[Rfam]
RNA sequence: AUAGUAUAAAGACCGUCGGUCUACCGAGCAAUAUUUAACCAGUUCGGUAGAUGACCUUCCCUUUAUCGU
Numbered sequence: 001a002u003a004g005u006a007u008a009a010a011g012a013c014c015g016u017c018g019g020u021c022u023a024c025c026g027a028g029c030a031a032u033a034u035u036u037a038a039c040c041a042g043u044u045c046g047g048u049a050g051a052u053g054a055c056c057u058u059c060c061c062u063u064u065a066u067c068g069u
Stems, first nucleotide, its partner, number of pairs: 004066003011059002015055003020051010